[Rfam]
RNA: L2-Alphaproteobacteria ribosomal protein leader
RNA sequence: GGGCACCUUCGGGGGCCUAUACCCGGUGGGCAGAUUGCCCACCCUACACAUAGCGGACCCCACAAAGGGUACGCGUUUGCUAAACGGAAGACAGAAA
Numbered sequence: 001g002g003g004c005a006c007c008u009u010c011g012g013g014g015g016c017c018u019a020u021a022c023c024c025g026g027u028g029g030g031c032a033g034a035u036u037g038c039c040c041a042c043c044c045u046a047c048a049c050a051u052a053g054c055g056g057a058c059c060c061c062a063c064a065a066a067g068g069g070u071a072c073g074c075g076u077u078u079g080c081u082a083a084a085c086g087g088a089a090g091a092c093a094g095a096a097a
Stems, first nucleotide, its partner, number of pairs: 001018004006014003025074001027073002037070004
Dot-bracket structure: ((((.(((...)))))))......(.((........((((..........................)))).))).......................